[Rfam]
RNA sequence: UGCUGGGGGACCUGCUGGGGGCUCCCCCAACCUCAUGCUGGGAUGGGACCCUGGGGACAUGUGGGGCUGACCCCGAGGCCCUGGCA
Numbered sequence: 001u002g003c004u005g006g007g008g009g010a011c012c013u014g015c016u017g018g019g020g021g022c023u024c025c026c027c028c029a030a031c032c033u034c035a036u037g038c039u040g041g042g043a044u045g046g047g048a049c050c051c052u053g054g055g056g057a058c059a060u061g062u063g064g065g066g067c068u069g070a071c072c073c074c075g076a077g078g079c080c081c082u083g084g085c086a
Base pairs, nucleotide, nucleotide: 004083006081008080009079011078012077018074019073020072021071025065026064027063028061029060031056032055033054034053035052
This 86-nucleotide RNA from Catharus fuscescens belongs to the Rfam family "NoRC associated RNA, pRNA".
The literature on the family includes a 2008 paper in EMBO Rep by Mayer et al., "The structure of NoRC-associated RNA is crucial for targeting the chromatin remodelling complex NoRC to the nucleolus".
A search with the family's covariance model found it, with a score of 34 bits.
Its family is annotated with chromatin remodeling in the Gene Ontology.
It is annotated as a non-coding RNA gene.